[Rfam]
RNA: TD-2 RNA
RNA sequence: ACGGGCAUGGACGCCCGUGGUUCCACACAGAAUUGAGUUUGAAAACUACCACAGCGUAUUCGGAGUUUUCAAACUCGCAGGUUUCAUUUUGCCACGGAUGGCAAAAUGAAACCGUUG
Numbered sequence: 001a002c003g004g005g006c007a008u009g010g011a012c013g014c015c016c017g018u019g020g021u022u023c024c025a026c027a028c029a030g031a032a033u034u035g036a037g038u039u040u041g042a043a044a045a046c047u048a049c050c051a052c053a054g055c056g057u058a059u060u061c062g063g064a065g066u067u068u069u070c071a072a073a074c075u076c077g078c079a080g081g082u083u084u085c086a087u088u089u090u091g092c093c094a095c096g097g098a099u100g101g102c103a104a105a106a107u108g109a110a111a112c113c114g115u116u117g
Base pairs, nucleotide, nucleotide: 001018002017003016004015005014006013034077035076036075037074038073039072040071041070042069043068044067045066046065047064080113081112082111083110084109085108086107087106088105089104090103091102092101093100